RNA sequence: UAAAAUUGCUAGGGGCGCCUUUUGGCUGAGAUAGUUUGACUAGACCCUUAUAACCUGAUUUGGUUCGUACCAACGUAGGAAAGUAGUAUAUUCAGAAU
Dot-bracket structure: .....(((((((((..(((....)))......(((...)))...)))).....((((..((((......))))..))))..)))))............

The record is a 98-nucleotide RNA sequence from Staphylococcus carnosus, which matches "TPP riboswitch aptamer (THI element)" in Rfam. The sequence is in the family's curated seed alignment. Lineage of the source: Bacteria > Bacillati > Caryophanales > Staphylococcaceae > Staphylococcus.